[Rfam]
RNA sequence: GGAGUCGCCUGGGCAAUCGCCGGACCCAAAGUCCGGAGGAAAGUCCGAACACCAGAGGGCAGGGUGCUCCAUAACGUGGAGUCGCGGCGACGCGAAGGAAAGUGCAACAGAGAGCAGACCGCCGUUUUUCAAGGGUCGAGGUUGGUUCCGGCAUUUGUCGGAGGCCGACGCCGUCUCUGGAAACGGUAAGGGUGAAACGGUGCGGUAAGAGCGCACCAGUUCUCCGGGCGACCGGAGAAGCUUGGUAAACCCCACCCGGUGCAAGACCAAAUAGGGGAGUGAUUGAGGACGGCCCGUCCGAGCUCCCGGGUAGGUUGCAGGAGGUGCCGGGCAACCGGCAUCCAUAGAGGAAUGAUUGCCGCCGUCCCGCGGCAGAAAUGCCUCGGGAUGGAACAGAAUUCGGCUUACGGGCGACUCCGACC
Numbered sequence: 001g002g003a004g005u006c007g008c009c010u011g012g013g014c015a016a017u018c019g020c021c022g023g024a025c026c027c028a029a030a031g032u033c034c035g036g037a038g039g040a041a042a043g044u045c046c047g048a049a050c051a052c053c054a055g056a057g058g059g060c061a062g063g064g065u066g067c068u069c070c071a072u073a074a075c076g077u078g079g080a081g082u083c084g085c086g087g088c089g090a091c092g093c094g095a096a097g098g099a100a101a102g103u104g105c106a107a108c109a110g111a112g113a114g115c116a117g118a119c120c121g122c123c124g125u126u127u128u129u130c131a132a133g134g135g136u137c138g139a140g141g142u143u144g145g146u147u148c149c150g151g152c153a154u155u156u157g158u159c160g161g162a163g164g165c166c167g168a169c170g171c172c173g174u175c176u177c178u179g180g181a182a183a184c185g186g187u188a189a190g191g192g193u194g195a196a197a198c199g200g201u202g203c204g205g206u207a208a209g210a211g212c213g214c215a216c217c218a219g220u221u222c223u224c225c226g227g228g229c230g231a232c233c234g235g236a237g238a239a240g241c242u243u244g245g246u247a248a249a250c251c252c253c254a255c256c257c258g259g260u261g262c263a264a265g266a267c268c269a270a271a272u273a274g275g276g277g278a279g280u281g282a283u284u285g286a287g288g289a290c291g292g293c294c295c296g297u298c299c300g301a302g303c304u305c306c307c308g309g310g311u312a313g314g315u316u317g318c319a320g321g322a323g324g325u326g327c328c329g330g331g332c333a334a335c336c337g338g339c340a341u342c343c344a345u346a347g348a349g350g351a352a353u354g355a356u357u358g359c360c361g362c363c364g365u366c367c368c369g370c371g372g373c374a375g376a377a378a379u380g381c382c383u384c385g386g387g388a389u390g391g392a393a394c395a396g397a398a399u400u401c402g403g404c405u406u407a408c409g410g411g412c413g414a415c416u417c418c419g420a421c422c
Stems, first nucleotide, its partner, number of pairs: 001418011012360007020036006041406003045403005050261004057295004062257005067081005082096001083094004097252002102250002104246002119191002121187009199217006219241001220239008265316004275307006287299004323342008
Description
Rfam assigns this 422-nucleotide RNA from Desulfococcus multivorans to the family "Bacterial RNase P class A". The source organism's lineage runs through Bacteria, Thermodesulfobacteriota, Desulfobacteria, Desulfobacterales and Desulfococcus multivorans. It scores 304 bits against the family's covariance model.